Background:
The family of this 72-nucleotide RNA from filamentous cyanobacterium Phorm 6 is "Cyano-1 RNA". Pairs were carried over by alignment from the consensus structure, which is taken from published work. The source organism's lineage runs through Bacteria, Bacillati and Cyanobacteriota.
RNA sequence: GGACGUGUGAGGAGCGAACCAGAAAAAGCACCGAGACGAAACACGGCCAGUCGUCGGUGCUUUUUCUGUGGA
Numbered sequence: 001g002g003a004c005g006u007g008u009g010a011g012g013a014g015c016g017a018a019c020c021a022g023a024a025a026a027a028g029c030a031c032c033g034a035g036a037c038g039a040a041a042c043a044c045g046g047c048c049a050g051u052c053g054u055c056g057g058u059g060c061u062u063u064u065u066c067u068g069u070g071g072a
Stems, first nucleotide, its partner, number of pairs: 015068001021067005028060002032056003035052003